[Rfam]
RNA sequence: CGCACUUGCCUUUUAGGCAUCCUCUCCCAAAAACUUUCAAGGGUCGCCCUCGGGCGGCCCUUUUUUUCGACCUUU
Numbered sequence: 001c002g003c004a005c006u007u008g009c010c011u012u013u014u015a016g017g018c019a020u021c022c023u024c025u026c027c028c029a030a031a032a033a034c035u036u037u038c039a040a041g042g043g044u045c046g047c048c049c050u051c052g053g054g055c056g057g058c059c060c061u062u063u064u065u066u067u068c069g070a071c072c073u074u075u
Stems, first nucleotide, its partner, number of pairs: 008018004041060008
RNA: Makes More Granules Regulator RNA (mmgR)
Organism: Sphingopyxis panaciterrulae